[Rfam]
RNA sequence: UACAUCCUGCGAUGUUCGUUACAGCUUAUACGUUGUUUUGAACCAAUGGCUGUUUCUAGGGAGUUCAAUAUUGAAGCGCGGCUGACAUGCCCCCGAAAAGGGAUCUCAAAAACGUUUCUGCGGACACCCACCUGCGAGAGCGGGUUCAGAAACAUGAUAAGCGGACGGCAUUGGCGGGUUACCU
Numbered sequence: 001u002a003c004a005u006c007c008u009g010c011g012a013u014g015u016u017c018g019u020u021a022c023a024g025c026u027u028a029u030a031c032g033u034u035g036u037u038u039u040g041a042a043c044c045a046a047u048g049g050c051u052g053u054u055u056c057u058a059g060g061g062a063g064u065u066c067a068a069u070a071u072u073g074a075a076g077c078g079c080g081g082c083u084g085a086c087a088u089g090c091c092c093c094c095g096a097a098a099a100g101g102g103a104u105c106u107c108a109a110a111a112a113c114g115u116u117u118c119u120g121c122g123g124a125c126a127c128c129c130a131c132c133u134g135c136g137a138g139a140g141c142g143g144g145u146u147c148a149g150a151a152a153c154a155u156g157a158u159a160a161g162c163g164g165a166c167g168g169c170a171u172u173g174g175c176g177g178g179u180u181a182c183c184u
Base pairs, nucleotide, nucleotide: 004180006178007177008176009175010174012171013170014169015168017167018166019165035153036152037151038150039148040147041146042145043144044143059129060128061127063125064124065123066122070119073118074117075116076115077114078113085106090102091101092100
RNA: 6S / SsrS RNA
Organism: Paenibacillus sambharensis